[Rfam]
Rfam assigns this 86-nucleotide sequence from Nezara viridula to the family "mir-276 microRNA precursor family". A reference for the family is Li et al. (2009), "Direct sequencing and expression analysis of a large number of miRNAs in Aedes aegypti and a multi-species survey of novel mosquito miRNAs", BMC Genomics. The family has 42 seed sequences and 200 matches in Rfam 15.1.
RNA sequence: AUGGUAGAAAACCACCAGCGAGGUAUAGAGUUCCUACGUCUAUUUGUUUUGUAGGAACUUCAUACCGUGCUCUUGGUUCUGCCAAA
Numbered sequence: 001a002u003g004g005u006a007g008a009a010a011a012c013c014a015c016c017a018g019c020g021a022g023g024u025a026u027a028g029a030g031u032u033c034c035u036a037c038g039u040c041u042a043u044u045u046g047u048u049u050u051g052u053a054g055g056a057a058c059u060u061c062a063u064a065c066c067g068u069g070c071u072c073u074u075g076g077u078u079c080u081g082c083c084a085a086a
Stems, first nucleotide, its partner, number of pairs: 012076003017071004022066005028060010
Dot-bracket structure: ...........(((..((((.(((((.((((((((((.............)))))))))).))))).))))..)))..........